[Rfam]
RNA: mir-8/mir-141/mir-200 microRNA precursor family
Organism: Tupaia belangeri
RNA sequence: GUGGGCAUCUUACCGGACAGUGCUGGACUUCUCAACGGCUCUAACACUGUCUGGUAACGAUGUUCAA
Numbered sequence: 001g002u003g004g005g006c007a008u009c010u011u012a013c014c015g016g017a018c019a020g021u022g023c024u025g026g027a028c029u030u031c032u033c034a035a036c037g038g039c040u041c042u043a044a045c046a047c048u049g050u051c052u053g054g055u056a057a058c059g060a061u062g063u064u065c066a067a
Base pairs, nucleotide, nucleotide: 002066003065004064005063006062007061008060009059010057011056012055013054014053015052016051017050018049019048020047021046022045024043025042026041027040